RNA sequence: GUACGUUCACCCUGGCGACAGGGCGCAUGACUCGCUGUCACGGAACGGGGACAGCAU
Numbered sequence: 001g002u003a004c005g006u007u008c009a010c011c012c013u014g015g016c017g018a019c020a021g022g023g024c025g026c027a028u029g030a031c032u033c034g035c036u037g038u039c040a041c042g043g044a045a046c047g048g049g050g051a052c053a054g055c056a057u
Stems, first nucleotide, its partner, number of pairs: 004047005010023005034055004038050002
RNA: Glutamine-II riboswitch aptamer
Organism: Synechococcus phage S-CBS4